[Rfam]
RNA sequence: UCCAUCGUGAGAUGAAAUCUGAAAGAAGCCCUAGGCAAAGUCUUGGUCUGAGGAACACGAACCACAUAUAAGGCUUACUUGAGACUGACGAGUUUGAUAAACAAAGUCCAACACUCCCCAAUCUCGAGGAGUAUAUGUGGCAGAUAUGUAUUAUAUGAAGGAAGUUCAUAGU
Numbered sequence: 001u002c003c004a005u006c007g008u009g010a011g012a013u014g015a016a017a018u019c020u021g022a023a024a025g026a027a028g029c030c031c032u033a034g035g036c037a038a039a040g041u042c043u044u045g046g047u048c049u050g051a052g053g054a055a056c057a058c059g060a061a062c063c064a065c066a067u068a069u070a071a072g073g074c075u076u077a078c079u080u081g082a083g084a085c086u087g088a089c090g091a092g093u094u095u096g097a098u099a100a101a102c103a104a105a106g107u108c109c110a111a112c113a114c115u116c117c118c119c120a121a122u123c124u125c126g127a128g129g130a131g132u133a134u135a136u137g138u139g140g141c142a143g144a145u146a147u148g149u150a151u152u153a154u155a156u157g158a159a160g161g162a163a164g165u166u167c168a169u170a171g172u
Base pairs, nucleotide, nucleotide: 001016003014004013005012006011028172029171032168035165036164041158042157044155045154046145047144048143049142050141062140063139064138065137066136067135073132074131075130078128079127080126081125082124083123084122087108088107089106092102093101094100095099
Shown here is a 172-nucleotide RNA sequence from Pseudobacteroides cellulosolvens, a member of the family "Group II catalytic intron D1-D4-3". It scores 108 bits against the family's covariance model. The source organism's lineage runs through Bacteria, Bacillota, Clostridia, Eubacteriales and Pseudobacteroides cellulosolvens.